[Rfam]
The record is a 164-nucleotide sequence from Brassica napus, which matches "Small nucleolar RNA snoR138" in Rfam. The match comes from Rfam's covariance-model search (118 bits). Taxonomically the source falls in Brassica (Eukaryota, Tracheophyta, Pentapetalae, malvids). Rfam 15.1 lists 308 matches to the family in 168 species. The family's consensus secondary structure was predicted with mfold. On this family, see Chen and Wu, Nucleic Acids Res 2009: "Mining small RNA sequencing data: a new approach to identify small nucleolar RNAs in Arabidopsis". Rfam classes the family as an H/ACA-box small nucleolar RNA.
RNA sequence: AUAGCCUCCGAAUAGCGAGAAGGUGCAUUAUCUGAAUACUUUCUGGUUCAGACAGAGGCUUAUAUUAAAACUCGAAUCAGUUUUUGAGGGUGAAAAAAGCUUUACUCUUUUUUUUUUUACCCAUCAAAUCUUUCAUUCCUUUUAUUGGAUAGAUUCGAAUAUCU
Numbered sequence: 001a002u003a004g005c006c007u008c009c010g011a012a013u014a015g016c017g018a019g020a021a022g023g024u025g026c027a028u029u030a031u032c033u034g035a036a037u038a039c040u041u042u043c044u045g046g047u048u049c050a051g052a053c054a055g056a057g058g059c060u061u062a063u064a065u066u067a068a069a070a071c072u073c074g075a076a077u078c079a080g081u082u083u084u085u086g087a088g089g090g091u092g093a094a095a096a097a098a099g100c101u102u103u104a105c106u107c108u109u110u111u112u113u114u115u116u117u118u119a120c121c122c123a124u125c126a127a128a129u130c131u132u133u134c135a136u137u138c139c140u141u142u143u144a145u146u147g148g149a150u151a152g153a154u155u156c157g158a159a160u161a162u163c164u
Stems, first nucleotide, its partner, number of pairs: 003060006014048003018044004023039003073157006081127002085123002088121001090120001094112006137149003